[Rfam]
Description:
The record is a 227-nucleotide RNA from Xenorhabdus innexi, which matches "SraG RNA" in Rfam. This RNA was discovered in E. coli during a large scale screen. Evidence was found for specific cleavage of this RNA. The family's consensus secondary structure was predicted with PFOLD. A search with the family's covariance model found it, with a score of 85 bits.

RNA sequence: CUCUUCGUUACACCCUCACGACUAAUGACAGUACUCAGCCCUUUACCUUUCAAGUAACCGCUUUACAGCCAUGGUGUAACCUGAAAUCUUUCGGAUAUAUUUUUUUAAGUACUCUCAUUAGCCGCGCGAGUCACUGUAACUAAAGAGGUUCAACUAGUUAAGAAAUGGAAUUUAAGUUUCUUAAUCCCCAUUUCCUAGAAGAAAAGGGGCCAGAUUGGCCCCUUUCC
Numbered sequence: 001c002u003c004u005u006c007g008u009u010a011c012a013c014c015c016u017c018a019c020g021a022c023u024a025a026u027g028a029c030a031g032u033a034c035u036c037a038g039c040c041c042u043u044u045a046c047c048u049u050u051c052a053a054g055u056a057a058c059c060g061c062u063u064u065a066c067a068g069c070c071a072u073g074g075u076g077u078a079a080c081c082u083g084a085a086a087u088c089u090u091u092c093g094g095a096u097a098u099a100u101u102u103u104u105u106u107a108a109g110u111a112c113u114c115u116c117a118u119u120a121g122c123c124g125c126g127c128g129a130g131u132c133a134c135u136g137u138a139a140c141u142a143a144a145g146a147g148g149u150u151c152a153a154c155u156a157g158u159u160a161a162g163a164a165a166u167g168g169a170a171u172u173u174a175a176g177u178u179u180c181u182u183a184a185u186c187c188c189c190a191u192u193u194c195c196u197a198g199a200a201g202a203a204a205a206g207g208g209g210c211c212a213g214a215u216u217g218g219c220c221c222c223u224u225u226c227c
Stems, first nucleotide, its partner, number of pairs: 001145002004142001007140001010137003017128001019126002022121007152179001206222006
Dot-bracket structure: ((.(..(..(((....(.((.(((((((......................................................................................)))))))...)).)......)))..).).))......(..........................)..........................((((((.....)))))).....